[Rfam]
RNA sequence: UCGACUGUACUUGCACAGGAUCACUGCUACAGUGAUUCCUCUUGCAUACAUGUCAUAAAACAGAGCUUCACAGCAUUUCUGAUGAUGCCGAUUUCUGCACUGAUAAGGAAUUUGCUGGAGCUUGCUCCCAGCUUGAUGAACCAGCUUGAUGAAAUCUAUCAGUGCAGACUUCUGAAGAGAU
Numbered sequence: 001u002c003g004a005c006u007g008u009a010c011u012u013g014c015a016c017a018g019g020a021u022c023a024c025u026g027c028u029a030c031a032g033u034g035a036u037u038c039c040u041c042u043u044g045c046a047u048a049c050a051u052g053u054c055a056u057a058a059a060a061c062a063g064a065g066c067u068u069c070a071c072a073g074c075a076u077u078u079c080u081g082a083u084g085a086u087g088c089c090g091a092u093u094u095c096u097g098c099a100c101u102g103a104u105a106a107g108g109a110a111u112u113u114g115c116u117g118g119a120g121c122u123u124g125c126u127c128c129c130a131g132c133u134u135g136a137u138g139a140a141c142c143a144g145c146u147u148g149a150u151g152a153a154a155u156c157u158a159u160c161a162g163u164g165c166a167g168a169c170u171u172c173u174g175a176a177g178a179g180a181u
Base pairs, nucleotide, nucleotide: 003039006035008034009033010032011031017028018027020025046068050067053064054063076180077179078178079177080176094168095167096166097165098164100162101161102160103159104158105157107142108141114132115131116130118127144156146154147153
The family of this 181-nucleotide sequence from Polarella glacialis is "ACEA small nucleolar RNA U3". Rfam links the family to the GO terms nucleolus and RNA processing. The organism belongs to Polarella, within Eukaryota. It scores 73 bits against the family's covariance model. The literature on the family includes a 1997 paper in Nucleic Acids Res by Zwieb, "The uRNA database". Small nucleolar RNAs (snoRNAs) are involved in the processing and modification of rRNA in the nucleolus. There are two main classes of snoRNAs: the box C/D class, and the box H/ACA class. Rfam classes the family as a C/D-box small nucleolar RNA.